RNA sequence: UUUUUUACAAAUCGGAAUGAUCUGAAAUUUGGAGCAUGUAUUCAUUAAAAAUAAGCAAAACUAGGAAAAAUAUAAAAAAAAAAAAUUACAUGAAAUAAAUUGACCAAAAUACCAUCGAAAAGUCUCAAGGGUAUUUUGGUCAAUUUUGUUUUCGUGAAUUAUUUGUUUUAUAUUUUCAUUAGGUGCGUCUCACUAAGAUGUACACACGUUCCAAAUUUUAGAUCAUUCCGAUUCGUAGAAAA
Numbered sequence: 001u002u003u004u005u006u007a008c009a010a011a012u013c014g015g016a017a018u019g020a021u022c023u024g025a026a027a028u029u030u031g032g033a034g035c036a037u038g039u040a041u042u043c044a045u046u047a048a049a050a051a052u053a054a055g056c057a058a059a060a061c062u063a064g065g066a067a068a069a070a071u072a073u074a075a076a077a078a079a080a081a082a083a084a085a086u087u088a089c090a091u092g093a094a095a096u097a098a099a100u101u102g103a104c105c106a107a108a109a110u111a112c113c114a115u116c117g118a119a120a121a122g123u124c125u126c127a128a129g130g131g132u133a134u135u136u137u138g139g140u141c142a143a144u145u146u147u148g149u150u151u152u153c154g155u156g157a158a159u160u161a162u163u164u165g166u167u168u169u170a171u172a173u174u175u176u177c178a179u180u181a182g183g184u185g186c187g188u189c190u191c192a193c194u195a196a197g198a199u200g201u202a203c204a205c206a207c208g209u210u211c212c213a214a215a216u217u218u219u220a221g222a223u224c225a226u227u228c229c230g231a232u233u234c235g236u237a238g239a240a241a242a
Stems, first nucleotide, its partner, number of pairs: 001242008010233025037206003041202001043200003061182004067176007075168003079164002097146017117124002

Description
The record is a 242-nucleotide RNA sequence from Amborella trichopoda, which matches "MIR8562 microRNA precursor family" in Rfam. Rfam links the family to the GO terms RISC complex and miRNA-mediated post-transcriptional gene silencing. Lineage of the source: Eukaryota > Streptophyta > Magnoliopsida > Amborellaceae > Amborella.